[Rfam]
RNA: tRNA
Organism: Erysipelothrix sp. HDW6B
RNA sequence: GUCUUCGUAGCUCAGUGGAUAGAGCACGCGCCUUCUAAGCGUGUGGUCGGGGGUUCAAAUCCCUCCGAGGACG
Numbered sequence: 001g002u003c004u005u006c007g008u009a010g011c012u013c014a015g016u017g018g019a020u021a022g023a024g025c026a027c028g029c030g031c032c033u034u035c036u037a038a039g040c041g042u043g044u045g046g047u048c049g050g051g052g053g054u055u056c057a058a059a060u061c062c063c064u065c066c067g068a069g070g071a072c073g
Base pairs, nucleotide, nucleotide: 001072002071003070004069005068006067007066010025011024012023013022027043028042029041030040031039049065050064051063052062053061